[Rfam]
RNA: Plastid-rps18 3UTR RNA
Organism: Trifolium subterraneum
RNA sequence: UGCAACUAUUUUACGAUUAAGAAGCAAUCGACUCUUAUACAGAUUAUGCAUUAUAUU
Numbered sequence: 001u002g003c004a005a006c007u008a009u010u011u012u013a014c015g016a017u018u019a020a021g022a023a024g025c026a027a028u029c030g031a032c033u034c035u036u037a038u039a040c041a042g043a044u045u046a047u048g049c050a051u052u053a054u055a056u057u
Stems, first nucleotide, its partner, number of pairs: 018037005025030001